[Rfam]
RNA sequence: CUCCCCGAAAUAGCUUUAGGGCUAGCCUCGCAUGGACGCUCACGGAGGUAAAGCACUGGAUGGAUGCGGGCCCUUCACCGGGUACCAAGUCCAACCAAACUCAGAAUGCCGAGAGCCAAUAUGCGGGAGUCAGACGGCGACUGAUAAGGGCCGUCGUCAAGAGGGAAACAGCCCAGACCAUCGGCUAAGGUCCCCAAGACAUGCCAAGUGGGAAAGGAAGUGCGGUUGCGCAGACAGCCAGGAGGUUGGCUUAGAAGCAGCCAUUCCUCGAAGGAGUGCGUAACAGCUCACUGGUCGAGUAGCCGCGCGCCGACAAUGUAACGGGGCUAAGCAUGUCACCGAAGCCAUGGCGCAGCGCGAGACGCUGCGGGUAGGGGAGCAUUCCAUGUACGGAUGAAGGGAGCCCGGGAGGGCUGCUGGACGGGAUGGAAGAGAGGAU
Numbered sequence: 001c002u003c004c005c006c007g008a009a010a011u012a013g014c015u016u017u018a019g020g021g022c023u024a025g026c027c028u029c030g031c032a033u034g035g036a037c038g039c040u041c042a043c044g045g046a047g048g049u050a051a052a053g054c055a056c057u058g059g060a061u062g063g064a065u066g067c068g069g070g071c072c073c074u075u076c077a078c079c080g081g082g083u084a085c086c087a088a089g090u091c092c093a094a095c096c097a098a099a100c101u102c103a104g105a106a107u108g109c110c111g112a113g114a115g116c117c118a119a120u121a122u123g124c125g126g127g128a129g130u131c132a133g134a135c136g137g138c139g140a141c142u143g144a145u146a147a148g149g150g151c152c153g154u155c156g157u158c159a160a161g162a163g164g165g166a167a168a169c170a171g172c173c174c175a176g177a178c179c180a181u182c183g184g185c186u187a188a189g190g191u192c193c194c195c196a197a198g199a200c201a202u203g204c205c206a207a208g209u210g211g212g213a214a215a216g217g218a219a220g221u222g223c224g225g226u227u228g229c230g231c232a233g234a235c236a237g238c239c240a241g242g243a244g245g246u247u248g249g250c251u252u253a254g255a256a257g258c259a260g261c262c263a264u265u266c267c268u269c270g271a272a273g274g275a276g277u278g279c280g281u282a283a284c285a286g287c288u289c290a291c292u293g294g295u296c297g298a299g300u301a302g303c304c305g306c307g308c309g310c311c312g313a314c315a316a317u318g319u320a321a322c323g324g325g326g327c328u329a330a331g332c333a334u335g336u337c338a339c340c341g342a343a344g345c346c347a348u349g350g351c352g353c354a355g356c357g358c359g360a361g362a363c364g365c366u367g368c369g370g371g372u373a374g375g376g377g378a379g380c381a382u383u384c385c386a387u388g389u390a391c392g393g394a395u396g397a398a399g400g401g402a403g404c405c406c407g408g409g410a411g412g413g414c415u416g417c418u419g420g421a422c423g424g425g426a427u428g429g430a431a432g433a434g435a436g437g438a439u
Base pairs, nucleotide, nucleotide: 001379002378003377004376005375006374011024012023013022014021015020026129027127028126029125030124031123032122033121036120038116039115040114041113043111044110045109052101053100057097058096059095061093062092063091064090068086069085070083071082072081073080133158134157135156136155137154138153139152141150142149163174164173165172178350179349180348181347183346184345185344189340190339191338198337199336200335201334202333203332204331216311217310220308221307222306223305224304225303226302227301228300229299237295238294239293240292241291243268244267245266248262249261250260269273274289278287279286351369352368353367354366355365356364357363380434382431383430384429385428386427387426391423392422399418400417402415403414404413405412406411
The record is a 439-nucleotide part of an RNA from Parasphaerochaeta coccoides, which matches "Bacterial large subunit ribosomal RNA" in Rfam. The family's consensus secondary structure is taken from published work. The family has 102 seed sequences and 51,934 matches in Rfam 15.1.